Overview: This 62-nucleotide RNA from Trichormus azollae belongs to the Rfam family "Nitrogen stress-induced RNA 1".
RNA sequence: UAGUAGAUGCACCCUGAUAACUAAUUUCCCCUAGUUGGCUAACACCGCUGGGGGUUUUUUUU
Dot-bracket structure: ..((......))...............(((((((.(((......))))))))))........